[Rfam]
Record summary: Bacterial RNase P class A: a 402-nucleotide RNA sequence from Nocardioides acrostichi. Rfam classes the family as a ribozyme. The match comes from Rfam's covariance-model search (282 bits). From the family's description: Ribonuclease P (RNase P) is a ubiquitous endoribonuclease, found in archaea, bacteria and eukarya as well as chloroplasts and mitochondria. Its best characterised activity is the generation of mature 5'-ends of tRNAs by cleaving the 5'-leader elements of precursor-tRNAs. Cellular RNase Ps are ribonucleoproteins. RNA from bacterial RNase Ps retains its catalytic activity in the absence of the protein subunit, i.e. it is a ribozyme.

RNA sequence: CGGGCUGGCCGGGCGACCGCGCCACACCGGGCUCACGCCGGGUGUGUCGAGGAAGGUCCGGGCUCCGCAGGGCAAGGUGGUGGGUAACGCCCACCCGGGGCAACCCGCGGGACAGUGCCACAGAGAGCAGACCGCCACAUCGGUUCGCCGAUGCGGUCAGGGUGAAAGGGCGGUGUAAGAGACCACCAGCGGCCGGGGCGACCCGGCCGGCUCGGCAAACCCCACCUGGAGCAAGGCCAAGAAGCCACCGAGAGGUGGUGCGCGCACGUUCGAGGGCUGCUCGCCCGAGUGCGCGGGUAGGCCGCUCGAGCCCAUCGGCAACGGUGGGCCUAGAUGGAUGGUCGCCCUUGCUGCCGGCUACGUGCAGCGAGACAGAACCCGGCCUAUUGGCCAGCCCGUCCC
Numbered sequence: 001c002g003g004g005c006u007g008g009c010c011g012g013g014c015g016a017c018c019g020c021g022c023c024a025c026a027c028c029g030g031g032c033u034c035a036c037g038c039c040g041g042g043u044g045u046g047u048c049g050a051g052g053a054a055g056g057u058c059c060g061g062g063c064u065c066c067g068c069a070g071g072g073c074a075a076g077g078u079g080g081u082g083g084g085u086a087a088c089g090c091c092c093a094c095c096c097g098g099g100g101c102a103a104c105c106c107g108c109g110g111g112a113c114a115g116u117g118c119c120a121c122a123g124a125g126a127g128c129a130g131a132c133c134g135c136c137a138c139a140u141c142g143g144u145u146c147g148c149c150g151a152u153g154c155g156g157u158c159a160g161g162g163u164g165a166a167a168g169g170g171c172g173g174u175g176u177a178a179g180a181g182a183c184c185a186c187c188a189g190c191g192g193c194c195g196g197g198g199c200g201a202c203c204c205g206g207c208c209g210g211c212u213c214g215g216c217a218a219a220c221c222c223c224a225c226c227u228g229g230a231g232c233a234a235g236g237c238c239a240a241g242a243a244g245c246c247a248c249c250g251a252g253a254g255g256u257g258g259u260g261c262g263c264g265c266a267c268g269u270u271c272g273a274g275g276g277c278u279g280c281u282c283g284c285c286c287g288a289g290u291g292c293g294c295g296g297g298u299a300g301g302c303c304g305c306u307c308g309a310g311c312c313c314a315u316c317g318g319c320a321a322c323g324g325u326g327g328g329c330c331u332a333g334a335u336g337g338a339u340g341g342u343c344g345c346c347c348u349u350g351c352u353g354c355c356g357g358c359u360a361c362g363u364g365c366a367g368c369g370a371g372a373c374a375g376a377a378c379c380c381g382g383c384c385u386a387u388u389g390g391c392c393a394g395c396c397c398g399u400c401c402c
Base pairs, nucleotide, nucleotide: 001398002397003396004395005394006393007392008391009390010389011387012346013345014344015343016342017341018340020049021048023046024045025044026043027042028041054385055384056383058382059381060380061379062378063231064230065229066228070282071281072280073279075227076226077225078224079223080094081093082092083091084090095109096107097106098105099104110222111221115220116219117216118215119214132161133160134157135156136155138153139152140151141150142149143148169187170186172184173183174182189211190209191208192207193206194205195204196203197202235303236302237301238300262294263293264292265291266290267289274286275285276284277283310329311328312327313326314325315324316323317322